[Rfam]
RNA sequence: UCCUUGUCUCUCAUGAUGAAACCCUGUGCCUCUGAGCUGCCAUGAUUCUGGCUUCAAAGUAAACGCUCUGAAGAGACAGGCAGAGG
Numbered sequence: 001u002c003c004u005u006g007u008c009u010c011u012c013a014u015g016a017u018g019a020a021a022c023c024c025u026g027u028g029c030c031u032c033u034g035a036g037c038u039g040c041c042a043u044g045a046u047u048c049u050g051g052c053u054u055c056a057a058a059g060u061a062a063a064c065g066c067u068c069u070g071a072a073g074a075g076a077c078a079g080g081c082a083g084a085g086g
Base pairs, nucleotide, nucleotide: 002086003085004084005083008080010079
RNA: Small nucleolar RNA SNORD105